A member of the RNA family "Fluoride riboswitch aptamer (crcB RNA motif)" from Leptolinea tardivitalis, 59 nucleotides long. Pairs were carried over by alignment from the consensus structure, which is taken from published work.
[Rfam]
RNA sequence: ACUUAGUUUGGCGAUGAGGCUCGCUCAACCGUCAUGUGACUGAUAGCUUCUACUAUUUU
Numbered sequence: 001a002c003u004u005a006g007u008u009u010g011g012c013g014a015u016g017a018g019g020c021u022c023g024c025u026c027a028a029c030c031g032u033c034a035u036g037u038g039a040c041u042g043a044u045a046g047c048u049u050c051u052a053c054u055a056u057u058u059u
Stems, first nucleotide, its partner, number of pairs: 010025004016050006031040003